[Rfam]
RNA sequence: GUCAGAGAAUAUGUUGUGCGUGUGGAUGGCGUGGUCGCCCACCAGGUGUUUGGCGGGAUUUUACCCUGUUCGUUCCAGCAGCGCGCGCUCGUGAUUGUGUCGAACCGUAACCCACUAUAGACGUUGCAGCGCGUUUU
Numbered sequence: 001g002u003c004a005g006a007g008a009a010u011a012u013g014u015u016g017u018g019c020g021u022g023u024g025g026a027u028g029g030c031g032u033g034g035u036c037g038c039c040c041a042c043c044a045g046g047u048g049u050u051u052g053g054c055g056g057g058a059u060u061u062u063a064c065c066c067u068g069u070u071c072g073u074u075c076c077a078g079c080a081g082c083g084c085g086c087g088c089u090c091g092u093g094a095u096u097g098u099g100u101c102g103a104a105c106c107g108u109a110a111c112c113c114a115c116u117a118u119a120g121a122c123g124u125u126g127c128a129g130c131g132c133g134u135u136u137u
Stems, first nucleotide, its partner, number of pairs: 006137005012131005018124004023119002027114003030107002033105001035103003040099003044095001047091002051087002053084003061081002064078001068074001
Dot-bracket structure: .....(((((.(((((.((((.((..(((((.(.(((..(((.(..((..(((((.....((.(...(.....)...).))))).))..))...).))).))).)))....)))...)).))))..))))).)))))

This 137-nucleotide sequence from Burkholderia ambifaria belongs to the Rfam family "h2cR sRNA". By type it is a small RNA.